The family of this 156-nucleotide RNA sequence from Comamonas sp. 26 is "ZMP/ZTP riboswitch aptamer (pfl RNA motif)". It scores 42 bits against the family's covariance model.
RNA sequence: GCAGGUGUACGCAACUGGCGAUAGGCGCAGAGUUUUUCUGCCGCUGACGUGGAAACCAGCAGACUGCAAGGUCUGUGAACCACCGGGGAGCGUACCGCCCAAGGUCGCAGCGAUUGCAACCCGCAAGCGUUUCAGCCGUUCGCCUGGGCAGCCCUU
Numbered sequence: 001g002c003a004g005g006u007g008u009a010c011g012c013a014a015c016u017g018g019c020g021a022u023a024g025g026c027g028c029a030g031a032g033u034u035u036u037u038c039u040g041c042c043g044c045u046g047a048c049g050u051g052g053a054a055a056c057c058a059g060c061a062g063a064c065u066g067c068a069a070g071g072u073c074u075g076u077g078a079a080c081c082a083c084c085g086g087g088g089a090g091c092g093u094a095c096c097g098c099c100c101a102a103g104g105u106c107g108c109a110g111c112g113a114u115u116g117c118a119a120c121c122c123g124c125a126a127g128c129g130u131u132u133c134a135g136c137c138g139u140u141c142g143c144c145u146g147g148g149c150a151g152c153c154c155u156u
Stems, first nucleotide, its partner, number of pairs: 004098001007095006015087002017144005049083004133151001135149003
The base pairs follow the family's consensus structure, which is taken from published work.